[Rfam]
RNA sequence: GCCAAAAUUAAGCCGAAGCUCGCAAGAGCGCGGGGGAACCACUUCUUGGGGUGUAGCCGUUUUUCACGGCAGGUGCAUACUCCCACCGAACCCGUCAGCUAACCUCGUAGGCGAAAAGGAGGAACCCU
Numbered sequence: 001g002c003c004a005a006a007a008u009u010a011a012g013c014c015g016a017a018g019c020u021c022g023c024a025a026g027a028g029c030g031c032g033g034g035g036g037a038a039c040c041a042c043u044u045c046u047u048g049g050g051g052u053g054u055a056g057c058c059g060u061u062u063u064u065c066a067c068g069g070c071a072g073g074u075g076c077a078u079a080c081u082c083c084c085a086c087c088g089a090a091c092c093c094g095u096c097a098g099c100u101a102a103c104c105u106c107g108u109a110g111g112c113g114a115a116a117a118g119g120a121g122g123a124a125c126c127c128u
Base pairs, nucleotide, nucleotide: 012112013111014110018029019028020027030108031107032106033105034104035103040048041047049093050092051091057069058068059067060066072087073086074085075084